Source information: The family of this 145-nucleotide RNA from Solibacillus sp. R5-41 is "Ribosomal protein L10 leader". The match comes from Rfam's covariance-model search (73 bits). The family's consensus secondary structure was predicted with CMfinder.

RNA sequence: GUGAAUCAUCCAUUUGUACCGUAGACAGUAGGAGUGACUUGUCACUUAAUGAUCCUGCCGAGGACAUAGGAGUUCGGAUUCUUUUUAAGAUGAUGUACUUUCUGCCUCUAUGUCUCUAAGAUGUAGAGGCUUUCUUUGUCGGUAU
Numbered sequence: 001g002u003g004a005a006u007c008a009u010c011c012a013u014u015u016g017u018a019c020c021g022u023a024g025a026c027a028g029u030a031g032g033a034g035u036g037a038c039u040u041g042u043c044a045c046u047u048a049a050u051g052a053u054c055c056u057g058c059c060g061a062g063g064a065c066a067u068a069g070g071a072g073u074u075c076g077g078a079u080u081c082u083u084u085u086u087a088a089g090a091u092g093a094u095g096u097a098c099u100u101u102c103u104g105c106c107u108c109u110a111u112g113u114c115u116c117u118a119a120g121a122u123g124u125a126g127a128g129g130c131u132u133u134c135u136u137u138g139u140c141g142g143u144a145u
Stems, first nucleotide, its partner, number of pairs: 028058006034045003104130010